[Rfam]
RNA sequence: AAGUUAAUCGGCGAUGACGUUCGCCACUAAAACUAAUUGGUAAAUCAAUUUGAUGACGUCUACUGCACA
Number, nucleotide and partner (000 for none) at each position: 001a000002a000003g000004u000005u000006a000007a000008u000009c000010g025011g024012c023013g022014a000015u000016g060017a059018c058019g057020u056021u055022c013023g012024c011025c010026a000027c000028u000029a000030a000031a000032a000033c000034u000035a050036a049037u048038u047039g000040g000041u000042a000043a000044a000045u000046c000047a038048a037049u036050u035051u000052g000053a000054u000055g021056a020057c019058g018059u017060c016061u000062a000063c000064u000065g000066c000067a000068c000069a000